[Rfam]
RNA sequence: UACUUUUGCACCCAUCUUGCAACAGAUGUAAGAAUACAUAAUAAUCAUUUAAAAAAUAUUGGAAUG
Numbered sequence: 001u002a003c004u005u006u007u008g009c010a011c012c013c014a015u016c017u018u019g020c021a022a023c024a025g026a027u028g029u030a031a032g033a034a035u036a037c038a039u040a041a042u043a044a045u046c047a048u049u050u051a052a053a054a055a056a057u058a059u060u061g062g063a064a065u066g
Stems, first nucleotide, its partner, number of pairs: 015033005

This 66-nucleotide RNA from Flavobacterium gilvum belongs to the Rfam family "S15-Flavobacteria ribosomal protein leader".
The family is grouped with related families in Rfam's "Ribosomal Protein S15 Leader clan".
By type it is a cis-regulatory leader.
Lineage of the source: Bacteria > Bacteroidota > Flavobacteriia > Flavobacteriales > Flavobacterium.